RNA sequence: UGGUAGAUGCACCCUGAUUCCAAAAUCCUGCGGCUUUGGUCGCGGGAUUUUUUUU
Numbered sequence: 001u002g003g004u005a006g007a008u009g010c011a012c013c014c015u016g017a018u019u020c021c022a023a024a025a026u027c028c029u030g031c032g033g034c035u036u037u038g039g040u041c042g043c044g045g046g047a048u049u050u051u052u053u054u055u
Stems, first nucleotide, its partner, number of pairs: 002013003025048010